[Rfam]
This 140-nucleotide sequence from Gorilla gorilla belongs to the Rfam family "Small nucleolar RNA SNORA43". From the family's description: ACA43 is a member of the H/ACA class of snoRNA that guide the sites of modification of uridines to pseudouridines. The base pairs follow the family's consensus structure, which was predicted with RNAfold. Gene Ontology terms of the family: RNA processing and nucleolus.
RNA sequence: GAUGCCUUCUGGAACAUGCCAGCACCGCAGAUGCUGGCAGUCUGCUGUGCCCAUGAUAUUGGGCAAAGAGGAAGUGGCUAUUUCUACACUUGGUGUUCAGAAACCAGUGAGCUCUAAGAAUGGUUUAUAGCCUGACAUUU
Numbered sequence: 001g002a003u004g005c006c007u008u009c010u011g012g013a014a015c016a017u018g019c020c021a022g023c024a025c026c027g028c029a030g031a032u033g034c035u036g037g038c039a040g041u042c043u044g045c046u047g048u049g050c051c052c053a054u055g056a057u058a059u060u061g062g063g064c065a066a067a068g069a070g071g072a073a074g075u076g077g078c079u080a081u082u083u084c085u086a087c088a089c090u091u092g093g094u095g096u097u098c099a100g101a102a103a104c105c106a107g108u109g110a111g112c113u114c115u116a117a118g119a120a121u122g123g124u125u126u127a128u129a130g131c132c133u134g135a136c137a138u139u140u
Base pairs, nucleotide, nucleotide: 003065004064005063006062007061012060013059027054030051076132077131078130084123085122086121089118090117095112096111097110098109099108